The family of this 137-nucleotide sequence from Oryctolagus cuniculus is "Small nucleolar RNA SNORA58". Its Rfam clan is "SNORA44 clan". Taxonomically the source falls in Oryctolagus (Eukaryota, Craniata, Sarcopterygii, Lagomorpha). Rfam links the family to the GO terms nucleolus and RNA processing. It is annotated as an H/ACA-box small nucleolar RNA. ACA52 is a member of the H/ACA class of snoRNA that guide the sites of modification of uridines to pseudouridines. A search with the family's covariance model found it, with a score of 137 bits.
RNA sequence: AGGCAUACCCGUAGACCUUGCCUGACUGUGCUCAUGGCCAGACAAGGGGGACAGUGUGUGCCAGAGCAAAUGCGGAGUUCGUGCCAGCACUAGCCAGCUAAAUCCGUGGCUGGAUAAAUUGCCACACUCCAACAUUA
Numbered sequence: 001a002g003g004c005a006u007a008c009c010c011g012u013a014g015a016c017c018u019u020g021c022c023u024g025a026c027u028g029u030g031c032u033c034a035u036g037g038c039c040a041g042a043c044a045a046g047g048g049g050g051a052c053a054g055u056g057u058g059u060g061c062c063a064g065a066g067c068a069a070a071u072g073c074g075g076a077g078u079u080c081g082u083g084c085c086a087g088c089a090c091u092a093g094c095c096a097g098c099u100a101a102a103u104c105c106g107u108g109g110c111u112g113g114a115u116a117a118a119u120u121g122c123c124a125c126a127c128u129c130c131a132a133c134a135u136u137a
Base pairs, nucleotide, nucleotide: 003061004060005059006058007057008056016047017046018045019044020043022041023040024039074130075129076128077127079126083122084121094113095112096111097110098109